[Rfam]
RNA sequence: UGGACCCAAGAUAGGAAAGUGUCCAUGAACAAAGGGUCGUGAUUAAUCUGCUUCUUUGUAAAAUGCAGAGGUCCAUU
Number, nucleotide and partner (000 for none) at each position: 001u075002g074003g073004a072005c071006c070007c000008a000009a000010g000011a000012u000013a000014g000015g000016a000017a000018a000019g000020u000021g000022u000023c000024c000025a000026u000027g000028a000029a000030c000031a000032a000033a000034g000035g000036g000037u000038c000039g000040u000041g000042a000043u000044u000045a000046a000047u000048c000049u000050g000051c000052u000053u000054c000055u000056u000057u000058g000059u000060a000061a000062a000063a000064u000065g000066c000067a000068g000069a000070g006071g005072u004073c003074c002075a001076u000077u000
Annotation:
A member of the RNA family "Small nucleolar RNA SNORD112" from Cricetulus griseus, 77 nucleotides long. Rfam classes the family as a C/D-box small nucleolar RNA. The family has 13 seed sequences and 191 matches in Rfam 15.1. The base pairs follow the family's consensus structure, which was predicted with WAR. A search with the family's covariance model found it, with a score of 72 bits. The source organism's lineage runs through Eukaryota, Eumetazoa, Amniota, Mammalia and Cricetulus. On this family, see Cavaille et al., Hum Mol Genet 2002: "Identification of tandemly-repeated C/D snoRNA genes at the imprinted human 14q32 domain reminiscent of those at the Prader-Willi/Angelman syndrome region".